The record is a 58-nucleotide RNA from Gossypium lobatum, which matches "Plastid-psbN 5UTR RNA" in Rfam. Rfam 15.1 lists 2,345 matches to the family in 397 species. For this family Rfam cites "Retrograde signaling in plants: A critical review focusing on the GUN pathway and beyond" (Richter et al., Plant Commun, 2023).

RNA sequence: UGCACCUAUCAAAGGAGUUGUUCCCCAUCCAGGGGCUACCUUACCAUAUUCCGAAUUC
Numbered sequence: 001u002g003c004a005c006c007u008a009u010c011a012a013a014g015g016a017g018u019u020g021u022u023c024c025c026c027a028u029c030c031a032g033g034g035g036c037u038a039c040c041u042u043a044c045c046a047u048a049u050u051c052c053g054a055a056u057u058c
Base pairs, nucleotide, nucleotide: 014042015041017039018038020036021035022034023033024032
The match comes from Rfam's covariance-model search (66 bits). By type it is a cis-regulatory element. Rfam's curators write: Plastid psbN is a non-coding RNA (ncRNA) recognised in plastids. Taxonomically the source falls in Gossypium (Eukaryota, Spermatophyta, Magnoliopsida, Malvales).